[Rfam]
RNA: narK RNA
RNA sequence: GGCCCGGCAAUUGCUGGUCACCCUGCGUGGUAAUCAACGGCGGUUACCCAAGCUCAACGACAAAGGCGUCGC
Numbered sequence: 001g002g003c004c005c006g007g008c009a010a011u012u013g014c015u016g017g018u019c020a021c022c023c024u025g026c027g028u029g030g031u032a033a034u035c036a037a038c039g040g041c042g043g044u045u046a047c048c049c050a051a052g053c054u055c056a057a058c059g060a061c062a063a064a065g066g067c068g069u070c071g072c
Base pairs, nucleotide, nucleotide: 029048030047031046032045033044034043035042